[Rfam]
RNA sequence: CCGCCCGUCGCUCCUACCGAUUGAAUGAUCCGGUGAGUUGUCCGGACGGGCGCGCCACCGGCCGGUUCGCCGGCGCGGGCGCGCCCGAAAGCUCAACAAACCUUAUCAUUUAGAGGAAGGAGAAGUCGUAACAAGGUUUCCGUAGGUGAACCUGCGGAAGGAUCAUUC
Number, nucleotide and partner (000 for none) at each position: 001c135002c000003g132004c000005c000006c128007g127008u000009c125010g000011c122012u121013c120014c119015u118016a000017c116018c115019g000020a000021u112022u000023g111024a110025a109026u108027g107028a106029u105030c000031c000032g102033g101034u100035g000036a000037g097038u096039u095040g094041u000042c000043c091044g000045g000046a000047c087048g086049g085050g084051c083052g082053c081054g080055c079056c078057a000058c000059c075060g074061g000062c072063c000064g000065g000066u000067u000068c000069g000070c000071c000072g062073g000074c060075g059076c000077g000078g056079g055080c054081g053082c052083g051084c050085c049086c048087g047088a000089a000090a000091g043092c000093u000094c040095a039096a038097c037098a000099a000100a034101c033102c032103u000104u000105a029106u028107c027108a026109u025110u024111u023112a021113g000114a000115g018116g017117a000118a015119g014120g013121a012122g011123a000124a000125g009126u000127c007128g006129u000130a000131a000132c003133a000134a000135g001136g000137u160138u159139u158140c157141c156142g155143u154144a153145g152146g151147u000148g000149a000150a000151c146152c145153u144154g143155c142156g141157g140158a139159a138160g137161g000162a000163u000164c000165a000166u000167u000168c000
Eukaryotic small subunit ribosomal RNA: a 168-nucleotide part of an RNA from Cyanidioschyzon merolae. The organism belongs to Cyanidioschyzon merolae, within Eukaryota. Its Rfam clan is "SSU clan". The match comes from Rfam's covariance-model search (1771 bits). The base pairs follow the family's consensus structure, which is taken from published work. Rfam links the family to the GO terms ribosome and structural constituent of ribosome.